RNA sequence: CCGUGCAGCCGGGGAGAUAGCGGUGCCCUGUACCUGCAAUCCGCUACAGCAGGGGUGAUGUCUUGCCCAGGGUGAUAUACUGUAGGGCAGCCCCUUAUAAGUGAUGUUGACGUUUGGGUCUUGCGCAACAGGAAUUCGUGAACCGUGUCAGGUCAGGAAUGAAGCAGCACUAAGCGAAAGCUCCUGUGUGCCGUGAGGGUGCCUGAGCCGAGUUAACUGUAUGGGUAACGCUUAUGGUAUACAUUCAAAGCAAGGCGCACGG
Numbered sequence: 001c002c003g004u005g006c007a008g009c010c011g012g013g014g015a016g017a018u019a020g021c022g023g024u025g026c027c028c029u030g031u032a033c034c035u036g037c038a039a040u041c042c043g044c045u046a047c048a049g050c051a052g053g054g055g056u057g058a059u060g061u062c063u064u065g066c067c068c069a070g071g072g073u074g075a076u077a078u079a080c081u082g083u084a085g086g087g088c089a090g091c092c093c094c095u096u097a098u099a100a101g102u103g104a105u106g107u108u109g110a111c112g113u114u115u116g117g118g119u120c121u122u123g124c125g126c127a128a129c130a131g132g133a134a135u136u137c138g139u140g141a142a143c144c145g146u147g148u149c150a151g152g153u154c155a156g157g158a159a160u161g162a163a164g165c166a167g168c169a170c171u172a173a174g175c176g177a178a179a180g181c182u183c184c185u186g187u188g189u190g191c192c193g194u195g196a197g198g199g200u201g202c203c204u205g206a207g208c209c210g211a212g213u214u215a216a217c218u219g220u221a222u223g224g225g226u227a228a229c230g231c232u233u234a235u236g237g238u239a240u241a242c243a244u245u246c247a248a249a250g251c252a253a254g255g256c257g258c259a260c261g262g
Base pairs, nucleotide, nucleotide: 001262002261003260004259005258006257008056009055010054011029012028013027014026016024018022033053034052035051036050037049062254063253064252065251066250070246071245072244073243074242077240078239079238080237081236082235083234084233085232086231093224094223096221097220098219101217102216103214104213105212112208113207114206115205116204117203118202119201120197121196122195123194124193125192126188127187129186130185131184132183133182135178136177137176138175139174145170146169147168148167153162154161155160
RNA: Bacterial large signal recognition particle RNA